Rfam assigns this 140-nucleotide sequence from Zea mays to the family "small nucleolar RNA snoR135". It is annotated as an H/ACA-box small nucleolar RNA. Rfam 15.1 lists 837 matches to the family in 220 species. For this family Rfam cites "Mining small RNA sequencing data: a new approach to identify small nucleolar RNAs in Arabidopsis" (Chen and Wu, Nucleic Acids Res, 2009). Rfam links the family to the GO terms RNA processing and nucleolus.

[Rfam]
RNA sequence: CCUGCAGGAUAGUGUGCAUCAGCUUUGCCCUGUUUUGAUGCGUCUUUUGCUGAAAGUGUUUCCUGCUAUAUCAAUCCGAGUUAAAUGGGCAGUUGGGUUAAGCAUAUCUGCUUUCUCCGACAAUCAUUUUCCUCACAUGU
Numbered sequence: 001c002c003u004g005c006a007g008g009a010u011a012g013u014g015u016g017c018a019u020c021a022g023c024u025u026u027g028c029c030c031u032g033u034u035u036u037g038a039u040g041c042g043u044c045u046u047u048u049g050c051u052g053a054a055a056g057u058g059u060u061u062c063c064u065g066c067u068a069u070a071u072c073a074a075u076c077c078g079a080g081u082u083a084a085a086u087g088g089g090c091a092g093u094u095g096g097g098u099u100a101a102g103c104a105u106a107u108c109u110g111c112u113u114u115c116u117c118c119g120a121c122a123a124u125c126a127u128u129u130u131c132c133u134c135a136c137a138u139g140u
Base pairs, nucleotide, nucleotide: 004066005065006064007063008062009060014043015042016041017040018039019038078134079133080132083129084128085127086126087125088124092121093120094119095118